The record is a 136-nucleotide sequence from Bison bison, which matches "Small nucleolar RNA SNORA1" in Rfam. From the family's description: ACA1 is a member of the H/ACA class of snoRNA that guide the sites of modification of uridines to pseudouridines. Rfam classes the family as an H/ACA-box small nucleolar RNA. Rfam 15.1 lists 1,282 matches to the family in 515 species. It scores 110 bits against the family's covariance model.

RNA sequence: AGCCUCAUUCUACUGAAAAUGGACACUGUUGUUCAUGGUGUCCAUAAACUGUUAAUGUAGCUAUAUUGAGCAUACAGGUUCUGCUUCUUUUACUGCAAUUUUAUUGCAGUGGUGAUAAUGAGACCUGUUAACGUAU
Numbered sequence: 001a002g003c004c005u006c007a008u009u010c011u012a013c014u015g016a017a018a019a020u021g022g023a024c025a026c027u028g029u030u031g032u033u034c035a036u037g038g039u040g041u042c043c044a045u046a047a048a049c050u051g052u053u054a055a056u057g058u059a060g061c062u063a064u065a066u067u068g069a070g071c072a073u074a075c076a077g078g079u080u081c082u083g084c085u086u087c088u089u090u091u092a093c094u095g096c097a098a099u100u101u102u103a104u105u106g107c108a109g110u111g112g113u114g115a116u117a118a119u120g121a122g123a124c125c126u127g128u129u130a131a132c133g134u135a136u
Stems, first nucleotide, its partner, number of pairs: 002061002006057003020044007074128005088114001090112004